[Rfam]
Nucleotides: 084
Base pairs, nucleotide, nucleotide: 001083002082003081004080005079006078007077010026011025012024028044029043030042031041032040060076061075062074063073064072
Number, partner (000 for none) and nucleotide at each position: 001083g002082c003081g004080a005079g006078a007077a008000u009000g010026g011025u012024c013000a014000a015000a016000u017000u018000g019000g020000u021000a022000a023000a024012g025011g026010c027000a028044c029043a030042g031041c032040a033000c034000u035000u036000a037000a038000a039000a040032u041031g042030c043029u044028g045000c046000g047000g048000a049000a050000u051000g052000a053000u054000u055000u056000c057000c058000u059000u060076g061075u062074g063073g064072g065000u066000u067000c068000g069000a070000g071000u072064c073063c074062c075061a076060c077007u078006u079005c080004u081003c082002g083001c084000a
tRNA: an 84-nucleotide RNA from Tequatrovirus T4.
Lineage of the source: Viruses > Duplodnaviria > Heunggongvirae > Pantevenvirales > Tequatrovirus.
Rfam's curators write: Transfer RNA (tRNA) molecules are approximately 80 nucleotides in length.
The family's RNA type in Rfam is transfer RNA.